[Rfam]
The record is a 197-nucleotide sequence from Sapajus apella, which matches "Small nucleolar RNA SNORA73 family" in Rfam. The base pairs follow the family's consensus structure, which is taken from published work. NCBI's taxonomy places the organism under Eukaryota, Dipnotetrapodomorpha, Amniota, Mammalia, Sapajus.
RNA sequence: CCAGUGUGGAUAUCCUGGGAGUUCACUCCCUCCAGGCUGUGCCCAACAGACAUAGGGGAGCACAGGGCCCUGCCCCUUGAGGUACAAUCCCUUUCCACAACGUGGGAGAUGCUGCUGAGUCUGUGUCUGUGUAUUCCUACAGCUUCUCAGAGUUCUGUGGACAAUGACUAGGGAGACAAACCAGGCAGGAAACAUGU
Numbered sequence: 001c002c003a004g005u006g007u008g009g010a011u012a013u014c015c016u017g018g019g020a021g022u023u024c025a026c027u028c029c030c031u032c033c034a035g036g037c038u039g040u041g042c043c044c045a046a047c048a049g050a051c052a053u054a055g056g057g058g059a060g061c062a063c064a065g066g067g068c069c070c071u072g073c074c075c076c077u078u079g080a081g082g083u084a085c086a087a088u089c090c091c092u093u094u095c096c097a098c099a100a101c102g103u104g105g106g107a108g109a110u111g112c113u114g115c116u117g118a119g120u121c122u123g124u125g126u127c128u129g130u131g132u133a134u135u136c137c138u139a140c141a142g143c144u145u146c147u148c149a150g151a152g153u154u155c156u157g158u159g160g161a162c163a164a165u166g167a168c169u170a171g172g173g174a175g176a177c178a179a180a181c182c183a184g185g186c187a188g189g190a191a192a193c194a195u196g197u
Stems, first nucleotide, its partner, number of pairs: 001106002004103004008044002011041002014036003018029004049096001056091004060085001062083002065078002126189005132183001143175005152162004
Dot-bracket structure: ((.((((((.((.(((.((((....))))....)))...)).))....(......(((((.((.((..........))...)).)..))))....)...)))).))...................(((((.(..........(((((....((((...))))........))))).......).)))))........

A reference for the family is Cervelli et al. (2002), "Comparative Structure Analysis of Vertebrate U17 Small Nucleolar RNA (snoRNA)", J Mol Evol. Rfam links the family to the GO terms nucleolus and RNA processing. A search with the family's covariance model found it, with a score of 129 bits. The family's RNA type in Rfam is H/ACA-box small nucleolar RNA. U17 (SNORA73A and SNORA73B) also known as E1 belongs to the H/ACA class of small nucleolar RNAs (snoRNAs). Vertebrate U17 is intron-encoded and ranges in length from 200-230 nucleotides, longer than most snoRNAs. It is one of the most abundant snoRNAs in human cells and is essential for the cleavage of pre-rRNA within the 5' external transcribed spacer (ETS).